[Rfam]
RNA sequence: CGGUUGCUUGCGAGUAGAUAUUAAAGCCUCAUUUCAUACACCACGACCAAAACGAUUAUCAGGAAGGAUAAGUUUUAUUUCCUUCUUCUUGUCCGUCUCUAACCGUUUUCUCGUGAGCAGCCUAUUCUAUUUU
Numbered sequence: 001c002g003g004u005u006g007c008u009u010g011c012g013a014g015u016a017g018a019u020a021u022u023a024a025a026g027c028c029u030c031a032u033u034u035c036a037u038a039c040a041c042c043a044c045g046a047c048c049a050a051a052a053c054g055a056u057u058a059u060c061a062g063g064a065a066g067g068a069u070a071a072g073u074u075u076u077a078u079u080u081c082c083u084u085c086u087u088c089u090u091g092u093c094c095g096u097c098u099c100u101a102a103c104c105g106u107u108u109u110c111u112c113g114u115g116a117g118c119a120g121c122c123u124a125u126u127c128u129a130u131u132u133u
Stems, first nucleotide, its partner, number of pairs: 002122011021102003045057002048054001063098001065096001066094007
RNA: Archaeal Small RNA 154